[Rfam]
RNA sequence: CAGGCCGCGAGGUGGAAUCUGAGGGAAGCUGGAGGCACAUGCACGAGCCGAGGUACACGAACUGGAUUUGAGGUAAUGUUAGCUGGAUGAGUCAUCUCAACACGACGAAGUCCGAAGUCGCAAGAGCUAACUCUGUAGUCUCCGGUGGUUGUGGGCAAAAAGAUUGCGUU
Number, nucleotide and partner (000 for none) at each position: 001c000002a000003g000004g013005c012006c011007g000008c000009g000010a000011g006012g005013u004014g000015g000016a000017a000018u000019c000020u000021g000022a000023g000024g000025g000026a000027a000028g170029c000030u168031g167032g000033a000034g000035g000036c162037a000038c000039a000040u157041g156042c155043a000044c153045g152046a150047g149048c148049c147050g146051a000052g000053g000054u000055a000056c000057a000058c000059g000060a000061a000062c145063u144064g143065g142066a141067u000068u000069u000070g000071a000072g000073g136074u135075a134076a000077u000078g131079u130080u129081a128082g127083c126084u000085g113086g112087a111088u110089g000090a000091g106092u105093c104094a000095u000096c000097u000098c000099a000100a000101c000102a000103c000104g093105a092106c091107g000108a000109a000110g088111u087112c086113c085114g000115a000116a000117g000118u000119c000120g000121c000122a000123a000124g000125a000126g083127c082128u081129a080130a079131c078132u000133c000134u075135g074136u073137a000138g000139u000140c000141u066142c065143c064144g063145g062146u050147g049148g048149u047150u046151g000152u045153g044154g000155g042156c041157a040158a000159a000160a000161a000162g036163a000164u000165u000166g000167c031168g030169u000170u028